The family of this 78-nucleotide RNA sequence from Escherichia coli is "Nucleoid-associated noncoding RNA 4 (CssrE)". Rfam classes the family as a small RNA. Lineage of the source: Bacteria > Pseudomonadota > Enterobacterales > Enterobacteriaceae > Escherichia coli O157:H7. It scores 86 bits against the family's covariance model.
[Rfam]
RNA sequence: GGCCGGAUAAGGCGUUCACGCCGCAUCCGGCGACAGGAGCCAAAUGCCGGAUGCAACGCUGGCGCGUUUUAUCCGGCC
Numbered sequence: 001g002g003c004c005g006g007a008u009a010a011g012g013c014g015u016u017c018a019c020g021c022c023g024c025a026u027c028c029g030g031c032g033a034c035a036g037g038a039g040c041c042a043a044a045u046g047c048c049g050g051a052u053g054c055a056a057c058g059c060u061g062g063c064g065c066g067u068u069u070u071a072u073c074c075g076g077c078c
Stems, first nucleotide, its partner, number of pairs: 002031007011022004046077008055068005
The family has 3 seed sequences and 870 matches in Rfam 15.1.
About the family: In E. coli small RNA transcribed from repeated extragenic palindromic element (REP325) called nucleoid-associated ncRNA 4 (nRNA4) collaborates HU protein in condensing the DNA. The secondary structure but not the sequence of the RNA is important in nucleoid condensation. Also identified in Shigella as CssrE.